[Rfam]
RNA sequence: UGCUACUACCAAACCUUUCCUCCACCUCCACGUGGUGAUCGCUGGGAGUUCUUUCUUAAUGAAAAACUGCAGAUGGAGAAGG
Numbered sequence: 001u002g003c004u005a006c007u008a009c010c011a012a013a014c015c016u017u018u019c020c021u022c023c024a025c026c027u028c029c030a031c032g033u034g035g036u037g038a039u040c041g042c043u044g045g046g047a048g049u050u051c052u053u054u055c056u057u058a059a060u061g062a063a064a065a066a067c068u069g070c071a072g073a074u075g076g077a078g079a080a081g082g
Stems, first nucleotide, its partner, number of pairs: 015082005021076002024036003047068004052063002055061001

A member of the RNA family "drz-agam-1 ribozyme" from Hermetia illucens, 82 nucleotides long. Rfam 15.1 lists 10,507 matches to the family in 53 species. Rfam links the family to the GO term catalytic activity. The base pairs follow the family's consensus structure, which is taken from published work. Taxonomically the source falls in Hermetia (Eukaryota, Mandibulata, Allotriocarida, Stratiomyomorpha).